RNA sequence: GAACGGCAGUCUGGAAAGCGGCUGCAGCGAUGCAGCCCACCGAAGGGGUAAGCGGGCGCAAGCCCCGUGAAAGCUCUCAGGUACUCGUGACAGGCGGGGGCGG
Numbered sequence: 001g002a003a004c005g006g007c008a009g010u011c012u013g014g015a016a017a018g019c020g021g022c023u024g025c026a027g028c029g030a031u032g033c034a035g036c037c038c039a040c041c042g043a044a045g046g047g048g049u050a051a052g053c054g055g056g057c058g059c060a061a062g063c064c065c066c067g068u069g070a071a072a073g074c075u076c077u078c079a080g081g082u083a084c085u086c087g088u089g090a091c092a093g094g095c096g097g098g099g100g101c102g103g
Stems, first nucleotide, its partner, number of pairs: 007097001009095005020037004039082003042078002046076003052068005
The family of this 103-nucleotide sequence from Sandaracinobacter neustonicus is "Glycine riboswitch aptamer". Gene Ontology term of the family: glycine biosynthetic process. A search with the family's covariance model found it, with a score of 46 bits.